[Rfam]
RNA sequence: GCUGCCACUGGCGUUGCAGAGAUGGCUGCUGUGGCAUCUUUGUGUCAAAGAGUGGCGAGAGAGAGCCAGGCUAUGUUCUACGCUCGUGUGUUCUGCACCCCGUGAGCACUCAGAGUGAUUGAUAGCCUGACAUC
Number, nucleotide and partner (000 for none) at each position: 001g056002c055003u054004g000005c000006c050007a000008c000009u000010g046011g045012c044013g000014u000015u000016g043017c042018a041019g040020a000021g038022a037023u036024g035025g000026c033027u000028g000029c000030u000031g000032u000033g026034g000035c024036a023037u022038c021039u000040u019041u018042g017043u016044g012045u011046c010047a000048a000049a000050g006051a000052g000053u000054g003055g002056c001057g000058a000059g000060a000061g000062a000063g000064a000065g131066c000067c129068a128069g127070g126071c125072u124073a123074u122075g000076u000077u000078c000079u000080a000081c117082g116083c000084u114085c113086g000087u112088g111089u108090g107091u106092u105093c104094u000095g000096c000097a000098c000099c000100c000101c000102g000103u000104g093105a092106g091107c090108a089109c000110u000111c088112a087113g085114a084115g000116u082117g081118a000119u000120u000121g000122a074123u073124a072125g071126c070127c069128u068129g067130a000131c065132a000133u000134c000
RNA: Small nucleolar RNA SNORA17